[Rfam]
RNA sequence: AGGUGAGGUAGAGGCGCGGGUUGCCAAGAGUAAGGCCGGUGAUCAAAGCAGGGGUAGCUGCCGGUACGAAAGGGGGACCUGCCGAAGUCCAUGGUUACACUCCCACUGGCCAUGGGCUGGGCCUGCAUCGAAUAGGUGCAGGACUGUCACCGGGGGAAGAUCCCGCCUCCUGGUGGAGCACUAUCUCACAA
Numbered sequence: 001a002g003g004u005g006a007g008g009u010a011g012a013g014g015c016g017c018g019g020g021u022u023g024c025c026a027a028g029a030g031u032a033a034g035g036c037c038g039g040u041g042a043u044c045a046a047a048g049c050a051g052g053g054g055u056a057g058c059u060g061c062c063g064g065u066a067c068g069a070a071a072g073g074g075g076g077a078c079c080u081g082c083c084g085a086a087g088u089c090c091a092u093g094g095u096u097a098c099a100c101u102c103c104c105a106c107u108g109g110c111c112a113u114g115g116g117c118u119g120g121g122c123c124u125g126c127a128u129c130g131a132a133u134a135g136g137u138g139c140a141g142g143a144c145u146g147u148c149a150c151c152g153g154g155g156g157a158a159g160a161u162c163c164c165g166c167c168u169c170c171u172g173g174u175g176g177a178g179c180a181c182u183a184u185c186u187c188a189c190a191a
Stems, first nucleotide, its partner, number of pairs: 006186006016082007024074001035065006086118012119145002122142008147176010